[Rfam]
RNA sequence: GCUGGAUGUGUCGCACGCAUCUGUAAUCCUGCUUCUGGGAGGCUUGAUAGUGUGGAUGACUUGAGACGAGGAUUCCUACUUCGUGACCGUGCAUGUUGAUCAGGCGUCCGCACUAAGUUGGGCAUCAACAUGGACCCAUUGAAGGAAUUUAAUGGGUGCAGGUUAGCUAAGGAGGAGCAAAACGGGCCAGGAAGGAAACUAAGCAGCCAAAAGUUCCCGUGUCGAGCAGUAGUAGGAUCGCGCCCGUGAAUGUACGACAUGAAUUAGCCUCGACAAAACAGUCAAACCUCUUUCUUU
Numbered sequence: 001g002c003u004g005g006a007u008g009u010g011u012c013g014c015a016c017g018c019a020u021c022u023g024u025a026a027u028c029c030u031g032c033u034u035c036u037g038g039g040a041g042g043c044u045u046g047a048u049a050g051u052g053u054g055g056a057u058g059a060c061u062u063g064a065g066a067c068g069a070g071g072a073u074u075c076c077u078a079c080u081u082c083g084u085g086a087c088c089g090u091g092c093a094u095g096u097u098g099a100u101c102a103g104g105c106g107u108c109c110g111c112a113c114u115a116a117g118u119u120g121g122g123c124a125u126c127a128a129c130a131u132g133g134a135c136c137c138a139u140u141g142a143a144g145g146a147a148u149u150u151a152a153u154g155g156g157u158g159c160a161g162g163u164u165a166g167c168u169a170a171g172g173a174g175g176a177g178c179a180a181a182a183c184g185g186g187c188c189a190g191g192a193a194g195g196a197a198a199c200u201a202a203g204c205a206g207c208c209a210a211a212a213g214u215u216c217c218c219g220u221g222u223c224g225a226g227c228a229g230u231a232g233u234a235g236g237a238u239c240g241c242g243c244c245c246g247u248g249a250a251u252g253u254a255c256g257a258c259a260u261g262a263a264u265u266a267g268c269c270u271c272g273a274c275a276a277a278a279c280a281g282u283c284a285a286a287c288c289u290c291u292u293u294c295u296u297u
Base pairs, nucleotide, nucleotide: 001043002042003041004022005021006020007019008018009017010016011015027040028039029038046294047293049291050290052288057284058283059282060281061280065274067272068271069270070269071268076267077266078265080263081262082261083260084259085258087256090254091253092252093251094250096248101246103244104243105242106241107240108236109235112233113232114231115230117227118226119225121223122222123221124220125219127164128163129162131160132159134157135156136155137154138153139152140151141150142149143148167171174217175216176215177214178213185208186207187206193200194199
About this RNA:
Rfam assigns this 297-nucleotide RNA sequence from Mitosporidium daphniae to the family "Metazoan signal recognition particle RNA". A search with the family's covariance model found it, with a score of 217 bits. The family is grouped with related families in Rfam's "SRP clan". The signal recognition particle (SRP) is a universally conserved ribonucleoprotein. It is involved in the co-translational targeting of proteins to membranes. The eukaryotic SRP consists of a 300-nucleotide 7S RNA and six proteins: SRPs 72, 68, 54, 19, 14, and 9. Rfam 15.1 lists 383,523 matches to the family in 1,221 species. NCBI's taxonomy places the organism under Eukaryota, Opisthokonta, Fungi, Microsporidia, Mitosporidium.